[Rfam]
Nucleotides: 223
Stems, first nucleotide, its partner, number of pairs: 011036003015032001019030004025188001038090004044085004048080002050075004055070001057068004110215001112214006131208006137164003142158004169202004174197006
Number, partner (000 for none) and nucleotide at each position: 001000a002000a003000a004000g005000u006000c007000c008000c009000u010000g011036u012035g013034g014000a015032g016000u017000a018000a019030g020029a021028c022027u023000g024000c025188c026000g027022g028021g029020u030019c031000g032015c033000c034013c035012c036011a037000g038090c039089u040088c041087c042000g043000a044085g045084u046083c047082a048080u049079g050075c051074g052073c053072c054000u055070g056000u057068u058067a059066u060065c061000g062000u063000a064000a065060g066059g067058u068057a069000u070055c071000u072053g073052g074051u075050g076000a077000a078000g079049c080048g081000u082047u083046g084045a085044c086000a087041g088040g089039a090038g091000u092000g093000u094000c095000u096000g097000u098000a099000g100000g101000c102000u103000a104000a105000g106000u107000a108000u109000u110215g111000a112214g113213c114212u115211g116210c117209g118000a119000a120000a121000u122000c123000a124000a125000u126000c127000a128000a129000u130000u131208c132207g133206a134205g135204g136203u137164g138163c139162u140000g141000a142158u143157g144156u145155u146000g147000u148000u149000a150000a151000c152000u153000g154000a155145a156144g157143c158142a159000g160000a161000a162139a163138g164137c165000a166000a167000a168000a169202c170201u171200g172199c173000a174197g175196g176195u177194c178193g179192c180000a181000u182000a183000a184000a185000u186000c187000c188025g189000c190000a191000a192179g193178u194177g195176a196175c197174c198000g199172g200171u201170a202169g203136a204135c205134c206133u207132c208131g209117c210116g211115c212114a213113g214112u215110c216000g217000u218000a219000g220000a221000c222000c223000u
Source information
This 223-nucleotide RNA sequence from Endozoicomonas numazuensis belongs to the Rfam family "Group II catalytic intron D1-D4-6". A reference for the family is Bonen and Vogel (2001), "The ins and outs of group II introns", Trends Genet.